[Rfam]
RNA sequence: GUACAGAUGAUGAGCACUGCAGUAUGAGACCCAACCGUGAUACUGUAAACGCUUUGUGAUGUA
Number, nucleotide and partner (000 for none) at each position: 001g000002u063003a062004c061005a060006g000007a000008u000009g000010a000011u000012g055013a053014g052015c051016a000017c000018u000019g000020c045021a044022g043023u042024a041025u040026g000027a000028g000029a000030c000031c000032c000033a000034a000035c000036c000037g000038u000039g000040a025041u024042a023043c022044u021045g020046u000047a000048a000049a000050c000051g015052c014053u013054u000055u012056g000057u000058g000059a000060u005061g004062u003063a002
RNA: Small nucleolar RNA Z39
Organism: Steatornis caripensis